[Rfam]
RNA: Small nucleolar RNA snoR145
RNA sequence: AAGCGAAGGUUCCCAGCGGAGAGGAUAGACUCUGUUACGAGACCUCUCUAACAAUUUAAAAUAACCUUCGCAGAAAGAACACCAAGCCAUCUCAAACGACUCAUCAAUUUUUUUCAGUAUUGGUGCGUCUUGAACCCUUUGGCUAUAGUAUA
Numbered sequence: 001a002a003g004c005g006a007a008g009g010u011u012c013c014c015a016g017c018g019g020a021g022a023g024g025a026u027a028g029a030c031u032c033u034g035u036u037a038c039g040a041g042a043c044c045u046c047u048c049u050a051a052c053a054a055u056u057u058a059a060a061a062u063a064a065c066c067u068u069c070g071c072a073g074a075a076a077g078a079a080c081a082c083c084a085a086g087c088c089a090u091c092u093c094a095a096a097c098g099a100c101u102c103a104u105c106a107a108u109u110u111u112u113u114u115c116a117g118u119a120u121u122g123g124u125g126c127g128u129c130u131u132g133a134a135c136c137c138u139u140u141g142g143c144u145a146u147a148g149u150a151u152a
Stems, first nucleotide, its partner, number of pairs: 003071007012021001014019001027047002030041003086143004098129002102125007